[Rfam]
RNA: RT-17 RNA
RNA sequence: AGCCUUGCCUCAUGGCAGAACAUACACUAAGCAGAAUAGCUAGUAGAUGAUGACAAAAGGGUCAUCCAGUCGAAUGUUAGGACAUAAAAAAAGCAGACAA
Numbered sequence: 001a002g003c004c005u006u007g008c009c010u011c012a013u014g015g016c017a018g019a020a021c022a023u024a025c026a027c028u029a030a031g032c033a034g035a036a037u038a039g040c041u042a043g044u045a046g047a048u049g050a051u052g053a054c055a056a057a058a059g060g061g062u063c064a065u066c067c068a069g070u071c072g073a074a075u076g077u078u079a080g081g082a083c084a085u086a087a088a089a090a091a092a093g094c095a096g097a098c099a100a
Stems, first nucleotide, its partner, number of pairs: 006017004038078003046071001049066006